[Rfam]
Nucleotides: 075
Stems, first nucleotide, its partner, number of pairs: 002073004
Number, partner (000 for none) and nucleotide at each position: 001000u002073c003072u004071g005070a006000u007000c008000c009000a010000u011000g012000a013000u014000g015000a016000c017000u018000a019000c020000u021000u022000g023000a024000u025000u026000a027000a028000a029000a030000u031000g032000u033000u034000g035000a036000c037000u038000g039000u040000u041000g042000g043000a044000u045000g046000a047000a048000g049000c050000u051000u052000g053000c054000g055000g056000a057000u058000a059000u060000g061000g062000g063000a064000c065000u066000g067000a068000g069000a070005u071004c072003a073002g074000c075000u